[Rfam]
This 66-nucleotide sequence from Cephalotus follicularis belongs to the Rfam family "MIR164 microRNA precursor family". Its family is annotated with miRNA-mediated post-transcriptional gene silencing and RISC complex in the Gene Ontology.

RNA sequence: UGGAGAAGGGGAGCACGUGCAAGAUGAACAAGGAGAGAGAGCUUGCACGUGCCCUGCUUCUCCAAC
Numbered sequence: 001u002g003g004a005g006a007a008g009g010g011g012a013g014c015a016c017g018u019g020c021a022a023g024a025u026g027a028a029c030a031a032g033g034a035g036a037g038a039g040a041g042c043u044u045g046c047a048c049g050u051g052c053c054c055u056g057c058u059u060c061u062c063c064a065a066c
Stems, first nucleotide, its partner, number of pairs: 001064008010055002013052011